This 132-nucleotide RNA from Dermacoccus sp. 147Ba belongs to the Rfam family "FMN riboswitch aptamer (RFN element)". Rfam's curators write: The RFN element is a highly conserved domain that is found frequently in the 5'-untranslated regions of prokaryotic mRNAs that encode for flavin mononucleotide (FMN) biosynthesis and transport proteins.

[Rfam]
RNA sequence: GGCGUGCUCCGGGGUAGGUGAAAUUCCUAGCCGGCGGUUAAAGUCCGCGACCCGGCCCGCUUCGUCAGGGGUCGGUUGACUCGGUGAGAUUCCGAGACCGACGGUUAAAGUCCGGAUGGGAGGCAGCAUGAG
Numbered sequence: 001g002g003c004g005u006g007c008u009c010c011g012g013g014g015u016a017g018g019u020g021a022a023a024u025u026c027c028u029a030g031c032c033g034g035c036g037g038u039u040a041a042a043g044u045c046c047g048c049g050a051c052c053c054g055g056c057c058c059g060c061u062u063c064g065u066c067a068g069g070g071g072u073c074g075g076u077u078g079a080c081u082c083g084g085u086g087a088g089a090u091u092c093c094g095a096g097a098c099c100g101a102c103g104g105u106u107a108a109a110g111u112c113c114g115g116a117u118g119g120g121a122g123g124c125a126g127c128a129u130g131a132g
Base pairs, nucleotide, nucleotide: 003130004129005128006127007126008125009123010122016028017027018026030111031110032100033099034048035047036046037045043098044097052075053074054073055072080096081095082094083093084092102114103113104112
Dot-bracket structure: ..((((((((.....(((.......))).[[((((((.....[[))))...((((................))))....(((((.......)))))]])).(((.....]]))).......)).))))))..